[Rfam]
RNA sequence: CCAGCCUGCUGAAGCUCAGAGGGCUCUGAUUCAGAAAGAUCAUCGGAUCCGUCUGAGCUUGGCUGGUCGG
Numbered sequence: 001c002c003a004g005c006c007u008g009c010u011g012a013a014g015c016u017c018a019g020a021g022g023g024c025u026c027u028g029a030u031u032c033a034g035a036a037a038g039a040u041c042a043u044c045g046g047a048u049c050c051g052u053c054u055g056a057g058c059u060u061g062g063c064u065g066g067u068c069g070g
Base pairs, nucleotide, nucleotide: 001070002069004067005066006065008063009062010061012060013059014058015057016056017055018054019053020052022050023049025047026046027045028044029043030042031039032038